[Rfam]
RNA: mir-30 microRNA precursor family
RNA sequence: UGAGCGGCUGUAAACAUCCUCGACUGGAAGCUAUGAGGCGCAGAAAGGCUUUCAGUCGGAUGUUUGCAGCUGCCGG
Dot-bracket structure: ...(((.((((((((((((...((((((((((..............)))))))))).)))))))))))).)))...